The record is a 96-nucleotide RNA sequence from Pedobacter cryotolerans, which matches "Flavo-1 RNA" in Rfam.
The family's RNA type in Rfam is small RNA.
The organism belongs to Pedobacter, within Bacteria.

[Rfam]
RNA sequence: AUAUAGCCCCGGUUGGAGCGAUAUCCUUUUUUUUGAUGUCAUCCUGAGCUUGUCGAAGGACAUCAAAAAAAGAUAUAGCGUAAAACGGGACUAACU
Numbered sequence: 001a002u003a004u005a006g007c008c009c010c011g012g013u014u015g016g017a018g019c020g021a022u023a024u025c026c027u028u029u030u031u032u033u034u035g036a037u038g039u040c041a042u043c044c045u046g047a048g049c050u051u052g053u054c055g056a057a058g059g060a061c062a063u064c065a066a067a068a069a070a071a072g073a074u075a076u077a078g079c080g081u082a083a084a085a086c087g088g089g090a091c092u093a094a095c096u
Stems, first nucleotide, its partner, number of pairs: 009088003013084002018079002023074003029069005035064006